The family of this 231-nucleotide RNA from Carassius auratus is "Small nucleolar RNA SNORA53". The family's RNA type in Rfam is H/ACA-box small nucleolar RNA. The family has 28 seed sequences and 1,090 matches in Rfam 15.1.

[Rfam]
RNA sequence: AACACGCUCCUUAGAUCCACCUCUGGGGAGUUCCUCCGCUCCGGUUCUGUUGUGUUCUCUCUCUGGGAUCAGCAGGAUCGGUCCCGAGGCUCCCGGCAGCUUCACGGCUGUACAGUUGGAGGUGCUUGAGUCAUUGGCAUGUGAGAUCAGUCUACCUGCUCACCCAGAAUCCUCUCUGCCCUGAUCCUUCCCAGGAAAACCCCAGGGCAGAACAGCUGGGGAGCAGACAAC
Numbered sequence: 001a002a003c004a005c006g007c008u009c010c011u012u013a014g015a016u017c018c019a020c021c022u023c024u025g026g027g028g029a030g031u032u033c034c035u036c037c038g039c040u041c042c043g044g045u046u047c048u049g050u051u052g053u054g055u056u057c058u059c060u061c062u063c064u065g066g067g068a069u070c071a072g073c074a075g076g077a078u079c080g081g082u083c084c085c086g087a088g089g090c091u092c093c094c095g096g097c098a099g100c101u102u103c104a105c106g107g108c109u110g111u112a113c114a115g116u117u118g119g120a121g122g123u124g125c126u127u128g129a130g131u132c133a134u135u136g137g138c139a140u141g142u143g144a145g146a147u148c149a150g151u152c153u154a155c156c157u158g159c160u161c162a163c164c165c166a167g168a169a170u171c172c173u174c175u176c177u178g179c180c181c182u183g184a185u186c187c188u189u190c191c192c193a194g195g196a197a198a199a200c201c202c203c204a205g206g207g208c209a210g211a212a213c214a215g216c217u218g219g220g221g222a223g224c225a226g227a228c229a230a231c
Stems, first nucleotide, its partner, number of pairs: 002142003006138003010130005018124008026094005035087002038084001041081002044078001047075004054069001056068004096111006156226005163219001166217002175211008
It scores 97 bits against the family's covariance model. The snoRNA ACA53 belongs to the H/ACA family of pseudouridylation guide snoRNAs. Rfam links the family to the GO terms RNA processing and nucleolus. The base pairs follow the family's consensus structure, which was predicted with RNAalifold.